[Rfam]
RNA sequence: CGAGAGAUACGGGGCGACGACCCGCAGCCUCACAUCCGGGCACUUCGACUGCGGCGAGCCAGUAGUGCGACCGACGUACCCAACC
Numbered sequence: 001c002g003a004g005a006g007a008u009a010c011g012g013g014g015c016g017a018c019g020a021c022c023c024g025c026a027g028c029c030u031c032a033c034a035u036c037c038g039g040g041c042a043c044u045u046c047g048a049c050u051g052c053g054g055c056g057a058g059c060c061a062g063u064a065g066u067g068c069g070a071c072c073g074a075c076g077u078a079c080c081c082a083a084c085c
Stems, first nucleotide, its partner, number of pairs: 002084001006080001008078004013060003022054006029047001038072002040068005
The family of this 85-nucleotide RNA is "c-di-GMP-II-GAG riboswitch aptamer". It is one of the family's seed sequences. Its Rfam clan is "c-di-GMP_II riboswitch clan". The family's consensus secondary structure is taken from published work.